[Rfam]
RNA sequence: ACCACAGUUGAGGUAGUUAAGAAUAUGUGAUGCCUUUCGGGAAUCAUUCACUUAUUCUUCCUGCCUCACCUGUGAC
Numbered sequence: 001a002c003c004a005c006a007g008u009u010g011a012g013g014u015a016g017u018u019a020a021g022a023a024u025a026u027g028u029g030a031u032g033c034c035u036u037u038c039g040g041g042a043a044u045c046a047u048u049c050a051c052u053u054a055u056u057c058u059u060c061c062u063g064c065c066u067c068a069c070c071u072g073u074g075a076c
Stems, first nucleotide, its partner, number of pairs: 003074003010067007022056004028050003
Shown here is a 76-nucleotide sequence from Pristionchus pacificus, a member of the family "mir-84 microRNA precursor family". Its family is annotated with RISC complex and miRNA-mediated post-transcriptional gene silencing in the Gene Ontology. The family has 8 seed sequences and 33 matches in Rfam 15.1. Rfam's curators put it in the seed alignment.